[Rfam]
RNA: RNA Staph. aureus E (RoxS)
Nucleotides: 112
Stems, first nucleotide, its partner, number of pairs: 003054005011047004019040006075109011
Number, partner (000 for none) and nucleotide at each position: 001000g002000u003054g004053a005052a006051a007050u008000a009000a010000a011047u012046c013045a014044c015000a016000a017000a018000c019040c020039a021038a022037a023036c024035a025000u026000a027000c028000a029000c030000c031000c032000c033000u034000u035024u036023g037022u038021u039020u040019g041000a042000a043000c044014g045013u046012g047011a048000a049000c050007a051006u052005u053004u054003c055000u056000c057000c058000c059000a060000u061000c062000c063000c064000c065000u066000u067000u068000g069000u070000g071000a072000a073000a074000a075109g076108a077107g078106g079105g080104u081103c082102u083101u084100c085099a086000u087000u088000c089000u090000g091000u092000c093000g094000a095000g096000g097000c098000u099085u100084g101083a102082a103081g104080g105079c106078u107077c108076u109075c110000u111000u112000u